[Rfam]
RNA sequence: ACCGCUCACGAACAUAGGGACACUGUUCGCGAAACUUUCGCGAACUACAUUCGCGAAAUUCGCGAACG
Numbered sequence: 001a002c003c004g005c006u007c008a009c010g011a012a013c014a015u016a017g018g019g020a021c022a023c024u025g026u027u028c029g030c031g032a033a034a035c036u037u038u039c040g041c042g043a044a045c046u047a048c049a050u051u052c053g054c055g056a057a058a059u060u061c062g063c064g065a066a067c068g
Stems, first nucleotide, its partner, number of pairs: 009062004018052003025045009
RNA: mir-9428 microRNA precursor family
Organism: Nematostella vectensis